[Rfam]
RNA: Eukaryotic large subunit ribosomal RNA, nucleotides 2214 to 2756
Nucleotides: 543
Stems, first nucleotide, its partner, number of pairs: 001509004010503007018495003035059005044049001060266002063263006069255001071253003075244009084197003088193004097184002100181001105177003109173004115167001117165002120162006128154005267271001279488007286480002290304003307343008318330004347474003351405003356402002358398004363394001366393003374385004406424006425429001445461005522539005
Number, partner (000 for none) and nucleotide at each position: 001509u002508a003507g004506a005000a006000c007000a008000a009000u010503g011502u012501a013500g014499g015498u016497a017000a018495g019494g020493g021000a022000a023000g024000u025000c026000g027000g028000c029000a030000a031000g032000a033000u034000g035059g036058a037057u038056c039055c040000g041000u042000a043000a044049c045000u046000u047000c048000g049044g050000g051000a052000c053000a054000a055039g056038g057037a058036u059035u060266g061265g062000c063263u064262c065261u066260g067259a068258g069255g070000a071253c072252u073251g074000g075244g076243c077242c078241u079240g080239u081238c082237g083236g084197g085196c086195u087000g088193g089192g090191g091190u092000c093000c094000g095000a096000a097184g098183c099000a100181g101000g102000u103000g104000c105177g106176g107175c108000a109173c110172u111171g112170a113000a114000c115167c116000g117165g118164g119000a120162c121161u122160g123159g124158g125157c126000g127000a128154g129153a130152c131151u132150g133000u134000c135000u136000c137000c138000c139000c140000u141000c142000g143000g144000g145000g146000a147000g148000u149000u150132c151131g152130g153129u154128c155000g156000a157125g158124u159123u160122c161121g162120g163000a164118c165117c166000a167115g168000c169000g170112u171111c172110g173109g174000g175107g176106c177105c178000u179000a180000c181100c182000c183098g184097u185000g186000g187000a188000a189000u190091g191090c192089c193088u194000c195086a196085g197084c198000u199000a200000c201000g202000c203000g204000g205000c206000g207000c208000g209000u210000c211000u212000g213000u214000c215000g216000u217000c218000g219000c220000g221000a222000c223000g224000g225000a226000u227000g228000c229000g230000a231000c232000c233000g234000u235000u236083u237082c238081g239080g240079c241078a242077g243076g244075c245000a246000a247000c248000u249000a250000a251073c252072a253071g254000c255069c256000g257000a258068c259067u260066c261065a262064g263063a264000a265061c266060u267271g268000g269000c270000a271267c272000g273000g274000a275000c276000u277000g278000g279488g280487g281486g282485a283484a284483u285482c286480c287479g288000a289000c290304u291303g292302u293000c294000u295000a296000a297000u298000u299000a300000a301000a302292a303291c304290a305000a306000a307343g308342c309341a310340u311339u312338g313337c314336g315000a316000u317000g318330g319329c320328c321327g322000a323000a324000g325000g326000c327321c328320g329319g330318u331000g332000u333000u334000g335000a336314c337313g338312c339311a340310a341309u342308g343307u344000g345000a346000u347474u348473u349472c350000u351405g352404c353403c354000c355000a356402g357401u358398g359397c360396u361395c362000u363394g364000a365000a366393u367392g368391u369000c370000a371000a372000a373000g374385u375384g376383a377382a378000g379000a380000a381000a382377u383376u384375c385374a386000a387000c388000c389000a390000a391368g392367c393366g394363c395361g396360g397359g398358u399000a400000a401357a402356c403353g404352g405351c406424g407423g408422g409421a410420g411419u412000a413000a414000c415000u416000a417000u418000g419411a420410c421409u422408c423407u424406c425429u426000u427000a428000a429425g430000g431000u432000a433000g434000c435000c436000a437000a438000a439000u440000g441000c442000c443000u444000c445461g446460u447459c448458a449457u450000c451000u452000a453000a454000u455000u456000a457449g458448u459447g460446a461445c462000g463000c464000g465000c466000a467000u468000g469000a470000a471000u472349g473348g474347a475000u476000u477000a478000a479287c480286g481000a482285g483284a484283u485282u486281c487280c488279c489000a490000c491000u492000g493020u494019c495018c496000c497016u498015a499014u500013c501012u502011a503010c504000u505000a506004u507003c508002u509001a510000g511000c512000g513000a514000a515000a516000c517000c518000a519000c520000a521000g522539c523538c524537a525536a526535g527000g528000g529000a530000a531000c532000g533000g534000g535526c536525u537524u538523g539522g540000g541000a542000a543000a